[Rfam]
DUF805b RNA: a 37-nucleotide RNA from Flavobacterium geliluteum. Lineage of the source: Bacteria > Bacteroidota > Flavobacteriales > Flavobacteriaceae > Flavobacterium.

RNA sequence: UAGGCGAAAUCUGAAAAGCCUAAUAAAAGAGUAAGAG
Numbered sequence: 001u002a003g004g005c006g007a008a009a010u011c012u013g014a015a016a017a018g019c020c021u022a023a024u025a026a027a028a029g030a031g032u033a034a035g036a037g
Base pairs, nucleotide, nucleotide: 002021003020004019005018010036011035012034

It is annotated as a cis-regulatory element. Pairs were carried over by alignment from the consensus structure, which is taken from published work.